[Rfam]
RNA sequence: UGCUGUUAGUGAUGAUUAUAAAGCUAAAACAGAUGGGAAUCUCUCUGAAAGAGGAUGAAGACUAAUUUUAAACUGAAACAGUG
Dot-bracket structure: (((((((.....................................................................)))))))
This 83-nucleotide sequence from Carlito syrichta belongs to the Rfam family "Small nucleolar RNA SNORD79".
Rfam 15.1 lists 784 matches to the family in 651 species.
NCBI's taxonomy places the organism under Eukaryota, Opisthokonta, Tetrapoda, Primates, Carlito.
A search with the family's covariance model found it, with a score of 93 bits.
Gene Ontology terms of the family: RNA processing and nucleolus.
The family's RNA type in Rfam is C/D-box small nucleolar RNA.
From the family's description: snoRNA U79 or Z22 is found in intron 7 of the gas5 gene in humans and is also present in mice.